[Rfam]
RNA sequence: AGCCCAUUGGCCAAGCAGUAAGGCAUACGACUUUGACUCGUACAUCUGCAGGUGCAAAUCCCGCAUGGGCUG
Numbered sequence: 001a002g003c004c005c006a007u008u009g010g011c012c013a014a015g016c017a018g019u020a021a022g023g024c025a026u027a028c029g030a031c032u033u034u035g036a037c038u039c040g041u042a043c044a045u046c047u048g049c050a051g052g053u054g055c056a057a058a059u060c061c062c063g064c065a066u067g068g069g070c071u072g
Stems, first nucleotide, its partner, number of pairs: 001071007010024003026042005048064002051061002
RNA: tRNA